[Rfam]
RNA: DUF3800-I RNA
RNA sequence: UUAAAGAGCGGGCGAAAGCGCCGUAUACUUGUGGCCAUCGAAUUAACGUUUAAGCGAACUGUAAGCUCGCCGAUCCACGGGGAAAAGCCGUAACGGAGUCGUUGCGGCUUUUUUACUACC
Numbered sequence: 001u002u003a004a005a006g007a008g009c010g011g012g013c014g015a016a017a018g019c020g021c022c023g024u025a026u027a028c029u030u031g032u033g034g035c036c037a038u039c040g041a042a043u044u045a046a047c048g049u050u051u052a053a054g055c056g057a058a059c060u061g062u063a064a065g066c067u068c069g070c071c072g073a074u075c076c077a078c079g080g081g082g083a084a085a086a087g088c089c090g091u092a093a094c095g096g097a098g099u100c101g102u103u104g105c106g107g108c109u110u111u112u113u114u115a116c117u118a119c120c
Stems, first nucleotide, its partner, number of pairs: 008024004012019002028081006037074004041050003054070004059065001085110010